[Rfam]
RNA sequence: UGUUAAAUCAGGAAUUGUAAACAAUUCCUAGACAAUAUGUAUAAUGUUCAUAAGUCAUUCCUAGAAAUUUUUCAUAAUGCCUGUAACA
Numbered sequence: 001u002g003u004u005a006a007a008u009c010a011g012g013a014a015u016u017g018u019a020a021a022c023a024a025u026u027c028c029u030a031g032a033c034a035a036u037a038u039g040u041a042u043a044a045u046g047u048u049c050a051u052a053a054g055u056c057a058u059u060c061c062u063a064g065a066a067a068u069u070u071u072u073c074a075u076a077a078u079g080c081c082u083g084u085a086a087c088a
Base pairs, nucleotide, nucleotide: 009083010082011081012080014078015077016076017075018074020072021071023069024068025067026066028064029063030062031061040052041051042050
This 88-nucleotide RNA sequence from Pongo pygmaeus belongs to the Rfam family "mir-384 microRNA precursor family". It is one of the family's seed sequences. Gene Ontology terms of the family: miRNA-mediated post-transcriptional gene silencing and RISC complex. The source organism's lineage runs through Eukaryota, Deuterostomia, Tetrapoda, Theria and Pongo.